[Rfam]
RNA sequence: AUUUCACAAUCGCUGAGUUUCCGCAAGGAAAGCGGGGGAACCAACGGUGCGGCCUGAUCGGUGUGAGAGUCGAUCAGCGGCACAUGGGGUGAAUCCUGAGCGCGGCGCCUAGGGCCGCAUCACUCAGGUAGGGCGACUCUCACCGCCCGAAUCCGACAGCUAACCUCGUAAGCGUUGUUGAGUGCGGCA
Numbered sequence: 001a002u003u004u005c006a007c008a009a010u011c012g013c014u015g016a017g018u019u020u021c022c023g024c025a026a027g028g029a030a031a032g033c034g035g036g037g038g039a040a041c042c043a044a045c046g047g048u049g050c051g052g053c054c055u056g057a058u059c060g061g062u063g064u065g066a067g068a069g070u071c072g073a074u075c076a077g078c079g080g081c082a083c084a085u086g087g088g089g090u091g092a093a094u095c096c097u098g099a100g101c102g103c104g105g106c107g108c109c110u111a112g113g114g115c116c117g118c119a120u121c122a123c124u125c126a127g128g129u130a131g132g133g134c135g136a137c138u139c140u141c142a143c144c145g146c147c148c149g150a151a152u153c154c155g156a157c158a159g160c161u162a163a164c165c166u167c168g169u170a171a172g173c174g175u176u177g178u179u180g181a182g183u184g185c186g187g188c189a
Stems, first nucleotide, its partner, number of pairs: 011174004018031003032169006042086002087154003095128006131148004
c-di-AMP riboswitch aptamer (ydaO/yuaA leader): a 189-nucleotide sequence from Paenibacillus dendritiformis.
This family represents a conserved RNA structure found upstream of the ydaO and yuaA genes in Bacillus subtilis and related genes in other bacteria. The ydaO/yuaA element is thought to act as a genetic 'off' switch for the ydaO and yuaA genes in its native state. It is believed that the element may be triggered during osmotic shock leading to activation of ydaO, a predicted amino acid transporter gene, and members of the yuaA-yubG operon which code for KtrA and KtrB K+ transporters.